[Rfam]
RNA sequence: CUUGUCCUUGUCUUUGGGGAGCAAAGUAUUCAAUGAUCGUUUAGUGAGAAUGCUGUUGCUGAAACCCAUUAAUAAAAUUAGACUGCAUCCGUUUUAAAUUACGAGAUGCAAUUUUUGUAAAG
Numbered sequence: 001c002u003u004g005u006c007c008u009u010g011u012c013u014u015u016g017g018g019g020a021g022c023a024a025a026g027u028a029u030u031c032a033a034u035g036a037u038c039g040u041u042u043a044g045u046g047a048g049a050a051u052g053c054u055g056u057u058g059c060u061g062a063a064a065c066c067c068a069u070u071a072a073u074a075a076a077a078u079u080a081g082a083c084u085g086c087a088u089c090c091g092u093u094u095u096a097a098a099u100u101a102c103g104a105g106a107u108g109c110a111a112u113u114u115u116u117g118u119a120a121a122g
Base pairs, nucleotide, nucleotide: 005019006018007017008016021059022058023057024056025054026053027052028051029050030049031048038044085109086108087107088106089105090103091102092101

This 122-nucleotide sequence from Nylanderia fulva belongs to the Rfam family "U4atac minor spliceosomal RNA". The family's RNA type in Rfam is spliceosomal small nuclear RNA. Rfam's curators write: U4atac is an essential component of the minor U12-type spliceosome complex which is required for removal of the rarer class of eukaryotic introns (AT-AC, U12-type). The match comes from Rfam's covariance-model search (79 bits). NCBI's taxonomy places the organism under Eukaryota, Mandibulata, Eumetabola, Hymenoptera, Nylanderia.